[Rfam]
The family of this 150-nucleotide sequence from Aphanomyces astaci is "U12 minor spliceosomal RNA". Its Rfam clan is "U2 clan". By type it is a spliceosomal small nuclear RNA. On this family, see Tarn and Steitz, Trends Biochem Sci 1997: "Pre-mRNA splicing: the discovery of a new spliceosome doubles the challenge". The organism belongs to Aphanomyces, within Eukaryota. It scores 58 bits against the family's covariance model. Rfam 15.1 lists 2,106 matches to the family in 1,170 species. Gene Ontology terms of the family: U12 snRNP, mRNA branch site recognition and pre-mRNA branch point binding.

RNA sequence: GUGGCUUAAACUCAAUGAGUAAGGAAACUAACUCUCUACCUGACAAGUAGAGAUCCCAACGGCAUUUUGCCUUGGCAAUUUAUGUGGGACACGGAAUGGUCAGCGCAGAUGUCCUCUACUUUGGGACACCUAGUGCUAGCUGGUCCCCUC
Numbered sequence: 001g002u003g004g005c006u007u008a009a010a011c012u013c014a015a016u017g018a019g020u021a022a023g024g025a026a027a028c029u030a031a032c033u034c035u036c037u038a039c040c041u042g043a044c045a046a047g048u049a050g051a052g053a054u055c056c057c058a059a060c061g062g063c064a065u066u067u068u069g070c071c072u073u074g075g076c077a078a079u080u081u082a083u084g085u086g087g088g089a090c091a092c093g094g095a096a097u098g099g100u101c102a103g104c105g106c107a108g109a110u111g112u113c114c115u116c117u118a119c120u121u122u123g124g125g126a127c128a129c130c131u132a133g134u135g136c137u138a139g140c141u142g143g144u145c146c147c148c149u150c
Stems, first nucleotide, its partner, number of pairs: 005023004033053007056075003088150002093148002098145006108130001111127005